[Rfam]
RNA sequence: UCGGCUUCUCUUGAUCUGUUUGUGCCUGCGGACGAACCUGUUGUUCGUUGGCAAUGGCGCGACGUGAAGCAAAACUGAUUUGUUCCUCUCGCUAUCCGGCGCAGAAUUUGUUGAUGCGAUUUGGACGUCGAGGAACUACACUU
Numbered sequence: 001u002c003g004g005c006u007u008c009u010c011u012u013g014a015u016c017u018g019u020u021u022g023u024g025c026c027u028g029c030g031g032a033c034g035a036a037c038c039u040g041u042u043g044u045u046c047g048u049u050g051g052c053a054a055u056g057g058c059g060c061g062a063c064g065u066g067a068a069g070c071a072a073a074a075c076u077g078a079u080u081u082g083u084u085c086c087u088c089u090c091g092c093u094a095u096c097c098g099g100c101g102c103a104g105a106a107u108u109u110g111u112u113g114a115u116g117c118g119a120u121u122u123g124g125a126c127g128u129c130g131a132g133g134a135a136c137u138a139c140a141c142u143u
Stems, first nucleotide, its partner, number of pairs: 001073001004070002008066001012059002015056001023053004028048002032044003082136007090127002095125005106112001
The family of this 143-nucleotide sequence from Zizania palustris is "Small nucleolar RNA snoR136". The family's RNA type in Rfam is H/ACA-box small nucleolar RNA. A reference for the family is Chen and Wu (2009), "Mining small RNA sequencing data: a new approach to identify small nucleolar RNAs in Arabidopsis", Nucleic Acids Res. It scores 50 bits against the family's covariance model.